Background
A member of the RNA family "Small nucleolar RNA R64/Z200 family" from Vanilla planifolia, 94 nucleotides long. By type it is a C/D-box small nucleolar RNA.

[Rfam]
RNA sequence: GUUUUGCCAUGAGGAAUUGUGAAAUAAUAGCAUGUCAGACUUCGGAGGCAACUCCUUGCCAAUGAGAUGAAUAUUUCAUUUUUCUGAGCAAGAU
Numbered sequence: 001g002u003u004u005u006g007c008c009a010u011g012a013g014g015a016a017u018u019g020u021g022a023a024a025u026a027a028u029a030g031c032a033u034g035u036c037a038g039a040c041u042u043c044g045g046a047g048g049c050a051a052c053u054c055c056u057u058g059c060c061a062a063u064g065a066g067a068u069g070a071a072u073a074u075u076u077c078a079u080u081u082u083u084c085u086g087a088g089c090a091a092g093a094u
Stems, first nucleotide, its partner, number of pairs: 001094007047060004